[Rfam]
RNA: Glycine riboswitch aptamer
Organism: Ferrovibrio terrae
RNA sequence: AUCAGUCUGGCGGGAGAGACGCGAAGCCCGUUCUACACGGGUUUUGCGCGCCGAAGGAGCAACCGCCCCGGAAACUCUCAGGCCAAAGGACCGACCAGACUGG
Numbered sequence: 001a002u003c004a005g006u007c008u009g010g011c012g013g014g015a016g017a018g019a020c021g022c023g024a025a026g027c028c029c030g031u032u033c034u035a036c037a038c039g040g041g042u043u044u045u046g047c048g049c050g051c052c053g054a055a056g057g058a059g060c061a062a063c064c065g066c067c068c069c070g071g072a073a074a075c076u077c078u079c080a081g082g083c084c085a086a087a088g089g090a091c092c093g094a095c096c097a098g099a100c101u102g103g
Base pairs, nucleotide, nucleotide: 006098009095011093012092013091020048021047022046023045024044025043026042027041028040029039030038031037050083051082052081053079054078057077058076059075063071064070